The family of this 91-nucleotide RNA sequence from Rarobacter incanus is "ZMP/ZTP riboswitch aptamer (pfl RNA motif)".
A search with the family's covariance model found it, with a score of 57 bits.
The organism belongs to Rarobacter, within Bacteria.
RNA sequence: AGUGCAGGUCGCAACUGGCGCAUGAGGUGGAUCACCACCAGGGAGCGACGUUGAGUGUGCCGAUCGUAGGUCGUUCGCCUGGGCCGACGGU
Numbered sequence: 001a002g003u004g005c006a007g008g009u010c011g012c013a014a015c016u017g018g019c020g021c022a023u024g025a026g027g028u029g030g031a032u033c034a035c036c037a038c039c040a041g042g043g044a045g046c047g048a049c050g051u052u053g054a055g056u057g058u059g060c061c062g063a064u065c066g067u068a069g070g071u072c073g074u075u076c077g078c079c080u081g082g083g084c085c086g087a088c089g090g091u
Base pairs, nucleotide, nucleotide: 003054006051008049009048010047011046012045015042016041017079018078019077020076027038028037029036030035069085070084071083072082

The family's consensus secondary structure is taken from published work.